[Rfam]
RNA sequence: ACAUACACUGAGGGGCCAGAUUAUUAUGAUUUCUGAACGCAUAAUUAUCUGGCCCCUCAGUGUAAGC
Numbered sequence: 001a002c003a004u005a006c007a008c009u010g011a012g013g014g015g016c017c018a019g020a021u022u023a024u025u026a027u028g029a030u031u032u033c034u035g036a037a038c039g040c041a042u043a044a045u046u047a048u049c050u051g052g053c054c055c056c057u058c059a060g061u062g063u064a065a066g067c
Base pairs, nucleotide, nucleotide: 004064005063006062007061008060009059010058011057012056013055014054015053016052017051019049020048021047023045024044025043026042027041028040

Rfam assigns this 67-nucleotide RNA from Pipistrellus kuhlii to the family "mir-9256 microRNA precursor family". Rfam links the family to the GO terms miRNA-mediated post-transcriptional gene silencing and RISC complex. A search with the family's covariance model found it, with a score of 82 bits.